This 313-nucleotide sequence from Thermococcus barophilus belongs to the Rfam family "Archaeal signal recognition particle RNA". Rfam links the family to the GO terms signal recognition particle, plasma membrane targeting and SRP-dependent cotranslational protein targeting to membrane, signal sequence recognition. The sequence is in the family's curated seed alignment. The organism belongs to Thermococcus barophilus, within Archaea. The family's consensus secondary structure is taken from published work.

RNA sequence: CGGCGGACUAGGCUGGGGGGUUCGGCGUCCCCUGUAACCCGAAACCGUCGAUAUGCGGGGGCCGAAGCCCGAGGGGCGGUUCCUGAAUCCAGCGGCGGAAGCCGGGGUAAACGAUGAGCCCUCGUCCCACGGGGCCGGCGGUGGGCGGGGCGGAGCUGAAGGGCUCCGCUAACGCCCUUUGCCCGCCGAACCCCGCAAGGCCCGGAAGGGAGCAGCGGUAGGCGGGACGUUCGGCGCUCGUGGGGUAGCGGGGGCGAGGGAGUCCCGGUGGAAGCCGCUGGAGGAGGGUUCCCACCCUCGGGCGCGUCCGCCG
Numbered sequence: 001c002g003g004c005g006g007a008c009u010a011g012g013c014u015g016g017g018g019g020g021u022u023c024g025g026c027g028u029c030c031c032c033u034g035u036a037a038c039c040c041g042a043a044a045c046c047g048u049c050g051a052u053a054u055g056c057g058g059g060g061g062c063c064g065a066a067g068c069c070c071g072a073g074g075g076g077c078g079g080u081u082c083c084u085g086a087a088u089c090c091a092g093c094g095g096c097g098g099a100a101g102c103c104g105g106g107g108u109a110a111a112c113g114a115u116g117a118g119c120c121c122u123c124g125u126c127c128c129a130c131g132g133g134g135c136c137g138g139c140g141g142u143g144g145g146c147g148g149g150g151c152g153g154a155g156c157u158g159a160a161g162g163g164c165u166c167c168g169c170u171a172a173c174g175c176c177c178u179u180u181g182c183c184c185g186c187c188g189a190a191c192c193c194c195g196c197a198a199g200g201c202c203c204g205g206a207a208g209g210g211a212g213c214a215g216c217g218g219u220a221g222g223c224g225g226g227a228c229g230u231u232c233g234g235c236g237c238u239c240g241u242g243g244g245g246u247a248g249c250g251g252g253g254g255c256g257a258g259g260g261a262g263u264c265c266c267g268g269u270g271g272a273a274g275c276c277g278c279u280g281g282a283g284g285a286g287g288g289u290u291c292c293c294a295c296c297c298u299c300g301g302g303c304g305c306g307u308c309c310g311c312c313g
Base pairs, nucleotide, nucleotide: 001313002312003311004310005309006308007307008306011063012062013061014060015033016032017031018030019029020028021027038059039058040057041056043054067303068302069301070300071299072298073297074296075295078292079291082287083286084285088282089281090280091279092278093277094276095275096274101269102268103267104266105265106264107263108262112258118255119254120253121252122251123250124249125248126244127243128242129241130240131239132238133237134235135234136233137232138230139229140228141179143177144176145175146174147173149170150169151168152167153166154165155164156163157162182226183225184224185223186222187221193218194217195216196215201210202209203208